[Rfam]
The record is a 116-nucleotide RNA from Xylanimonas cellulosilytica, which matches "SAM (S-adenosyl methionine) riboswitch aptamer" in Rfam. Rfam describes the family as follows. SAM-IV is a mRNA element that regulates gene expression via direct sensing of S-adenosylmethionine (SAM or AdoMet). The source organism's lineage runs through Bacteria, Bacillati, Actinomycetes, Promicromonosporaceae and Xylanimonas cellulosilytica.
RNA sequence: GGUCACGAGCGAUCAGCGAUACGCCCUCCGCGUGCUGGUCCGGCAACCGCGUCACUCGCGCACGGUGCCCCAGGAGGAAGACCGGCCCGCUCCAACCGGCGCGGGAAGGCUGGGUC
Numbered sequence: 001g002g003u004c005a006c007g008a009g010c011g012a013u014c015a016g017c018g019a020u021a022c023g024c025c026c027u028c029c030g031c032g033u034g035c036u037g038g039u040c041c042g043g044c045a046a047c048c049g050c051g052u053c054a055c056u057c058g059c060g061c062a063c064g065g066u067g068c069c070c071c072a073g074g075a076g077g078a079a080g081a082c083c084g085g086c087c088c089g090c091u092c093c094a095a096c097c098g099g100c101g102c103g104g105g106a107a108g109g110c111u112g113g114g115u116c
Base pairs, nucleotide, nucleotide: 001083002082003081004080009041012039013038014037015036016035017034022032023031042069043068044067047065048064049063051061053060086105087104088103089102090101092099093098